[Rfam]
RNA sequence: ACUAUCUGAGGUGGUAAAUUUCGUUGCAACCACGCACCCUAUGGGUCAAAAGAGAUGCAGGAGAGGCGACGCCUGCCGGAUAGU
Numbered sequence: 001a002c003u004a005u006c007u008g009a010g011g012u013g014g015u016a017a018a019u020u021u022c023g024u025u026g027c028a029a030c031c032a033c034g035c036a037c038c039c040u041a042u043g044g045g046u047c048a049a050a051a052g053a054g055a056u057g058c059a060g061g062a063g064a065g066g067c068g069a070c071g072c073c074u075g076c077c078g079g080a081u082a083g084u
Stems, first nucleotide, its partner, number of pairs: 001084008011033005023070005035052001036046004057076005
Shown here is an 84-nucleotide RNA, a member of the family "skipping-rope RNA". By type it is a small RNA.